[Rfam]
RNA sequence: CUAGGUACUUUCUCUACCUAACACUACCUAGACACGCAAAUUAGCAAUGAUUUGUGUGAAGCUUUAGGGACAAUGUAGCCUAUCUUAAAUGAUAAUGUAAGGAAAUAAAAGUGUUUUACAUAUUUCCUUCCAGGAGCUAGUGU
Numbered sequence: 001c002u003a004g005g006u007a008c009u010u011u012c013u014c015u016a017c018c019u020a021a022c023a024c025u026a027c028c029u030a031g032a033c034a035c036g037c038a039a040a041u042u043a044g045c046a047a048u049g050a051u052u053u054g055u056g057u058g059a060a061g062c063u064u065u066a067g068g069g070a071c072a073a074u075g076u077a078g079c080c081u082a083u084c085u086u087a088a089a090u091g092a093u094a095a096u097g098u099a100a101g102g103a104a105a106u107a108a109a110a111g112u113g114u115u116u117u118a119c120a121u122a123u124u125u126c127c128u129u130c131c132a133g134g135a136g137c138u139a140g141u142g143u
Base pairs, nucleotide, nucleotide: 002020003019004018005017006016007015028067029066030065031064032063033058034057035056036055037054038053039052040051041050042049043048081094082093083092084091096120097119098118099117105112106111124136125135126134127133128132
Notes:
The record is a 143-nucleotide sequence from Xylaria grammica, which matches "Group II catalytic intron D1-D4-7" in Rfam. Rfam's curators write: Group II introns are found in rRNA, tRNA and mRNA of organelles in fungi, plants and protists, and also in mRNA in bacteria. The base pairs follow the family's consensus structure. A reference for the family is Chu et al. (2001), "Control of branch-site choice by a group II intron", EMBO J.